The record is a 127-nucleotide RNA sequence from Phyllostomus discolor, which matches "Small nucleolar RNA SNORA25" in Rfam.
RNA sequence: AGAACAUUUCAAAGAGAGCUUGUGGAACACAAACCAGGGGCUCCUAACACUGUGAGCAAAUAUUGAAGUUUUCCACAGGACGUAAUUGUCACUCAAUAGUGCUAUAUUUUUCUGGAGAGAUAAAAGA
Number, nucleotide and partner (000 for none) at each position: 001a000002g057003a000004a000005c054006a053007u052008u000009u000010c000011a000012a000013a000014g045015a000016g043017a042018g041019c040020u039021u038022g000023u037024g035025g034026a000027a000028c000029a000030c000031a000032a000033a000034c025035c024036a000037g023038g021039g020040g019041c018042u017043c016044c000045u014046a000047a000048c000049a000050c000051u000052g007053u006054g005055a000056g000057c002058a000059a000060a000061u000062a000063u000064u000065g000066a000067a000068g000069u000070u120071u119072u118073c117074c000075a000076c000077a113078g112079g111080a110081c000082g000083u000084a000085a105086u104087u000088g102089u000090c101091a100092c099093u098094c000095a000096a000097u000098a093099g092100u091101g090102c088103u000104a086105u085106a000107u000108u000109u000110u080111u079112c078113u077114g000115g000116a000117g073118a072119g071120a070121u000122a000123a000124a000125a000126g000127a000

Rfam classes the family as an H/ACA-box small nucleolar RNA. About the family: ACA25 is a member of the H/ACA class of snoRNA that guide the sites of modification of uridines to pseudouridines. Its family is annotated with RNA processing and nucleolus in the Gene Ontology.